The family of this 91-nucleotide sequence from Microthlaspi erraticum is "Small nucleolar RNA snoR31/Z110/Z27".
The family's consensus secondary structure was predicted with PFOLD.
Gene Ontology terms of the family: nucleolus and RNA processing.
The family has 8 seed sequences and 571 matches in Rfam 15.1.
This family contains several related snoRNAs including R31, Z27 and Z110.
RNA sequence: CUGGAGAAAUGAUGAGAAAUCAGAAAUAUCUUAGGACACCUUCUGACACAGUUUGCUGUGUAUGAGAAAGACUCCGUAAUCUGAUCUCCAG
Numbered sequence: 001c002u003g004g005a006g007a008a009a010u011g012a013u014g015a016g017a018a019a020u021c022a023g024a025a026a027u028a029u030c031u032u033a034g035g036a037c038a039c040c041u042u043c044u045g046a047c048a049c050a051g052u053u054u055g056c057u058g059u060g061u062a063u064g065a066g067a068a069a070g071a072c073u074c075c076g077u078a079a080u081c082u083g084a085u086c087u088c089c090a091g
Stems, first nucleotide, its partner, number of pairs: 001091007044050002